This 72-nucleotide RNA sequence from Medicago truncatula belongs to the Rfam family "MIR2629 microRNA precursor family". The source organism's lineage runs through Eukaryota, Viridiplantae, Magnoliopsida, Trifolieae and Medicago.
RNA sequence: GGCAGUUGUUUUCCUCGGAAGUUAACUGCAGCCGGUUCUUUAAAAUUUCGACAGUUAACUGCCGAAGGACAU
Number, nucleotide and partner (000 for none) at each position: 001g000002g000003c000004a000005g000006u000007u000008g000009u000010u000011u000012u068013c067014c000015u065016c064017g063018g062019a000020a060021g059022u058023u057024a056025a055026c054027u053028g052029c000030a000031g000032c000033c000034g000035g000036u000037u000038c000039u000040u000041u000042a000043a000044a000045a000046u000047u000048u000049c000050g000051a000052c028053a027054g026055u025056u024057a023058a022059c021060u020061g000062c018063c017064g016065a015066a000067g013068g012069a000070c000071a000072u000